[Rfam]
RNA sequence: AGGGCGAUGGGGUCGACGGCGCGGGUGACGGUGAGGUAGUCGCGGAUGGCGACGCCGUGUCGUCCUUC
Numbered sequence: 001a002g003g004g005c006g007a008u009g010g011g012g013u014c015g016a017c018g019g020c021g022c023g024g025g026u027g028a029c030g031g032u033g034a035g036g037u038a039g040u041c042g043c044g045g046a047u048g049g050c051g052a053c054g055c056c057g058u059g060u061c062g063u064c065c066u067u068c
Stems, first nucleotide, its partner, number of pairs: 004063003008059002012029002016026002035056003040052004

Rfam assigns this 68-nucleotide sequence from Allocatelliglobosispora scoriae to the family "ASdes TB sRNA". Rfam 15.1 lists 1,192 matches to the family in 825 species. By type it is a small RNA. Lineage of the source: Bacteria > Actinomycetota > Micromonosporales > Micromonosporaceae > Allocatelliglobosispora. The base pairs follow the family's consensus structure, which is taken from published work.